RNA sequence: ACUCGGUAAUAAGUACUAGCGCCGUAGGAGUGUGAUGUUAUACGAACAAGUUCGAGCAUCAAUUGACAACUUUCUCCUGCAGUACUAGUGCUUAUUAUCAAAA
Dot-bracket structure: ..(.(((..((((((((((....(((((((...........................................)))))))....))))))))))..))).)..

Shown here is a 103-nucleotide RNA sequence from Blomia tropicalis, a member of the family "mir-252 microRNA precursor family". On this family, see Ruby et al., Cell 2006: "Large-scale sequencing reveals 21U-RNAs and additional microRNAs and endogenous siRNAs in C. elegans". Clan: mir-252 microRNA precursor family.